[Rfam]
RNA sequence: GCCGUAUAUAUGAUUCACCUUCGUAUAUCCUCGAUAAUAAGGAUCGAGAGUCUCUACCGGGCCGCCGUAAAUGGCCUGACUAUGAAGGCAGGGUUCUUGAUG
Numbered sequence: 001g002c003c004g005u006a007u008a009u010a011u012g013a014u015u016c017a018c019c020u021u022c023g024u025a026u027a028u029c030c031u032c033g034a035u036a037a038u039a040a041g042g043a044u045c046g047a048g049a050g051u052c053u054c055u056a057c058c059g060g061g062c063c064g065c066c067g068u069a070a071a072u073g074g075c076c077u078g079a080c081u082a083u084g085a086a087g088g089c090a091g092g093g094u095u096c097u098u099g100a101u102g
Stems, first nucleotide, its partner, number of pairs: 018088008030048006058078007